[Rfam]
Nucleotides: 175
Base pairs, nucleotide, nucleotide: 026043027042028041045084046083047082048081049080050079051078052077053076054075062074063073064072065071066070
Number, partner (000 for none) and nucleotide at each position: 001000c002000c003000c004000u005000u006000c007000g008000u009000c010000u011000u012000u013000g014000g015000g016000g017000a018000g019000u020000a021000g022000c023000c024000u025000g026043c027042u028041u029000u030000c031000c032000g033000u034000c035000u036000c037000c038000g039000g040000a041028a042027a043026g044000c045084g046083a047082a048081c049080g050079c051078g052077u053076c054075a055000a056000c057000a058000c059000a060000c061000u062074c063073g064072g065071c066070c067000u068000g069000c070066g071065g072064c073063c074062g075054u076053g077052g078051c079050g080049c081048g082047u083046u084045c085000a086000g087000c088000c089000u090000g091000a092000u093000c094000g095000g096000c097000c098000u099000g100000g101000c102000g103000a104000g105000a106000c107000c108000a109000u110000c111000g112000g113000c114000a115000c116000a117000u118000c119000g120000c121000g122000u123000c124000g125000u126000u127000c128000c129000u130000g131000g132000u133000c134000g135000g136000a137000c138000g139000u140000c141000g142000g143000c144000g145000g146000a147000u148000g149000u150000g151000c152000c153000a154000u155000g156000g157000u158000u159000c160000g161000u162000c163000a164000a165000c166000g167000u168000c169000c170000g171000a172000c173000c174000a175000c
Shown here is a 175-nucleotide RNA, a member of the family "Manganese Mn2+ riboswitch aptamer (yybP-ykoY)". The base pairs follow the family's consensus structure. From the family's description: This RNA was originally discovered in E. coli during a large scale screen and was named SraF. The family was later found to exist upstream of related families of protein genes in many bacteria, including the the yybP and ykoK genes in B. subtilis. The specific functions of these proteins are unknown, but this structured RNA element may be involved in their genetic regulation as a riboswitch. On this family, see Argaman et al., Curr Biol 2001: "Novel small RNA-encoding genes in the intergenic regions of Escherichia coli". Rfam links the family to the GO term manganese ion binding.